This 112-nucleotide sequence from Virgibacillus phasianinus belongs to the Rfam family "PyrR binding site". The match comes from Rfam's covariance-model search (64 bits). Gene Ontology terms of the family: pyrimidine nucleobase transport and pyrimidine nucleobase biosynthetic process. Pairs were carried over by alignment from the consensus structure, which is taken from published work.
[Rfam]
RNA sequence: UGAACCUUUAAGAAUAGUCCUGUGAGGCUAAAAAGGAAACGGAUUUAUACUUGGAUAUUCUUCUGAGUGUACCCAAAUCCCUUUUUUCCUCACGGAGAAAAGGGAUUUUUUU
Numbered sequence: 001u002g003a004a005c006c007u008u009u010a011a012g013a014a015u016a017g018u019c020c021u022g023u024g025a026g027g028c029u030a031a032a033a034a035g036g037a038a039a040c041g042g043a044u045u046u047a048u049a050c051u052u053g054g055a056u057a058u059u060c061u062u063c064u065g066a067g068u069g070u071a072c073c074c075a076a077a078u079c080c081c082u083u084u085u086u087u088c089c090u091c092a093c094g095g096a097g098a099a100a101a102g103g104g105a106u107u108u109u110u111u112u
Stems, first nucleotide, its partner, number of pairs: 005036005015030005046071010075108014

The organism belongs to Virgibacillus, within Bacteria.